[Rfam]
RNA sequence: GAGAGGGGGCCGGGGGUUACGGCUUCGAGCUGGGGAAGGUCCGCCCACGCCCCCAGCGCCGCCCCUCCGCAAGGAGGCACCUCGAGAGGGGUGGGAAGGCCCACAGAAACGACACGUCCUCGGGGGGAUGACGAUGAUGCCGGUGAGGCUGAGAAUCCCCGAGGGACCGGUGAAACGGGGCCCCGGCGGCGUGCAAGCCGAUUCCCGCUAUGAGGGGCUGGGGCGAGCGGGAGGUAGGCGCUUAGCCAAAUCCCCCCAGUACAGAAGGCGGACUAUGGCCCCCACUC
Numbered sequence: 001g002a003g004a005g006g007g008g009g010c011c012g013g014g015g016g017u018u019a020c021g022g023c024u025u026c027g028a029g030c031u032g033g034g035g036a037a038g039g040u041c042c043g044c045c046c047a048c049g050c051c052c053c054c055a056g057c058g059c060c061g062c063c064c065c066u067c068c069g070c071a072a073g074g075a076g077g078c079a080c081c082u083c084g085a086g087a088g089g090g091g092u093g094g095g096a097a098g099g100c101c102c103a104c105a106g107a108a109a110c111g112a113c114a115c116g117u118c119c120u121c122g123g124g125g126g127g128a129u130g131a132c133g134a135u136g137a138u139g140c141c142g143g144u145g146a147g148g149c150u151g152a153g154a155a156u157c158c159c160c161g162a163g164g165g166a167c168c169g170g171u172g173a174a175a176c177g178g179g180g181c182c183c184c185g186g187c188g189g190c191g192u193g194c195a196a197g198c199c200g201a202u203u204c205c206c207g208c209u210a211u212g213a214g215g216g217g218c219u220g221g222g223g224c225g226a227g228c229g230g231g232a233g234g235u236a237g238g239c240g241c242u243u244a245g246c247c248a249a250a251u252c253c254c255c256c257c258a259g260u261a262c263a264g265a266a267g268g269c270g271g272a273c274u275a276u277g278g279c280c281c282c283c284a285c286u287c
Base pairs, nucleotide, nucleotide: 001287002286003285005283006282007281008280009279010278011277012256013255014254015253016252020032021031022030023029024028037274038273041271042270043269044268045267046193047192048191049190051223052222053221054220055219056218059189060188061187062186063185064077065076066075067074068073078093079092080091081090082089094184095183099181100180101179102178115169116168118164119163120162121161122160123159124158125157139149140148197239198238199237204231205230206229207228208227
RNA: Archaeal RNase P
Organism: Candidatus Korarchaeum cryptofilum